[Rfam]
RNA sequence: CAUGCUCUAACGGGGUGCCGGUCCGAUCGACCGGCUGAGAGGCGCAAGGGGAAACCCUGCCAACCCGCGGAACCUGAUCCGGUUUGUACCGGCGGAGGGAUUAGACGCGGCAGAUUU
Numbered sequence: 001c002a003u004g005c006u007c008u009a010a011c012g013g014g015g016u017g018c019c020g021g022u023c024c025g026a027u028c029g030a031c032c033g034g035c036u037g038a039g040a041g042g043c044g045c046a047a048g049g050g051g052a053a054a055c056c057c058u059g060c061c062a063a064c065c066c067g068c069g070g071a072a073c074c075u076g077a078u079c080c081g082g083u084u085u086g087u088a089c090c091g092g093c094g095g096a097g098g099g100a101u102u103a104g105a106c107g108c109g110g111c112a113g114a115u116u117u
Stems, first nucleotide, its partner, number of pairs: 006105005011067004017035007042060003073098003079092004
The family of this 117-nucleotide RNA sequence from Phyllobacterium myrsinacearum is "TPP riboswitch aptamer (THI element)".
A search with the family's covariance model found it, with a score of 66 bits.
The source organism's lineage runs through Bacteria, Pseudomonadota, Alphaproteobacteria, Phyllobacteriaceae and Phyllobacterium.